A member of the RNA family "Sense overlapping transcript RNA 2652 (sot)" from Halostagnicola larsenii, 190 nucleotides long.
Rfam classes the family as a small RNA.
It is associated with IS1341-type transposase (tnpB) genes, at the 3'-end in H. salinarum NRC-1. The tetraloop structural motif may be functional.
The family has 2 seed sequences and 37 matches in Rfam 15.1.
RNA sequence: AUUACCGGACUCGCAAAACCCAACCGUUUGUUCGGAAGGUGAGCCUGUCUGGGUCGGGGCACUCUGUAAACUGCCCAUCCUCAUCCCGCGAAAUCGCUUCGUGUGGAGUGCUUACGACGUAGGCUGAGGGAAGUAGAAAAGCCACGGGUCACCCGACCCGUGGUCGUUUACUCUGAAAUAAGUGCCCACA
Numbered sequence: 001a002u003u004a005c006c007g008g009a010c011u012c013g014c015a016a017a018a019c020c021c022a023a024c025c026g027u028u029u030g031u032u033c034g035g036a037a038g039g040u041g042a043g044c045c046u047g048u049c050u051g052g053g054u055c056g057g058g059g060c061a062c063u064c065u066g067u068a069a070a071c072u073g074c075c076c077a078u079c080c081u082c083a084u085c086c087c088g089c090g091a092a093a094u095c096g097c098u099u100c101g102u103g104u105g106g107a108g109u110g111c112u113u114a115c116g117a118c119g120u121a122g123g124c125u126g127a128g129g130g131a132a133g134u135a136g137a138a139a140a141g142c143c144a145c146g147g148g149u150c151a152c153c154c155g156a157c158c159c160g161u162g163g164u165c166g167u168u169u170a171c172u173c174u175g176a177a178a179u180a181a182g183u184g185c186c187c188a189c190a
Stems, first nucleotide, its partner, number of pairs: 005052006013044002020039002024035002053079001057076005065070001090189001095184004099178001102175001105174006112126001115123001141164009

The base pairs follow the family's consensus structure, which was predicted with RNAfold.